RNA: ALIL pseudoknot
RNA sequence: CGCAUAUUUUGCCCAGGCGGAGCUCGACCGCCCGUUCAAGCGAUGACCAGCUUCAUUGAUGAGCAUCGGGGUGAGUAUGGGGUCGAGCCGAUCUGCCGGGUUCUGCCGAUCGCCCCA
Numbered sequence: 001c002g003c004a005u006a007u008u009u010u011g012c013c014c015a016g017g018c019g020g021a022g023c024u025c026g027a028c029c030g031c032c033c034g035u036u037c038a039a040g041c042g043a044u045g046a047c048c049a050g051c052u053u054c055a056u057u058g059a060u061g062a063g064c065a066u067c068g069g070g071g072u073g074a075g076u077a078u079g080g081g082g083u084c085g086a087g088c089c090g091a092u093c094u095g096c097c098g099g100g101u102u103c104u105g106c107c108g109a110u111c112g113c114c115c116c117a
Base pairs, nucleotide, nucleotide: 016032017031018030019029020028078117079116080115081114082113089112090111092109093108095106096105098103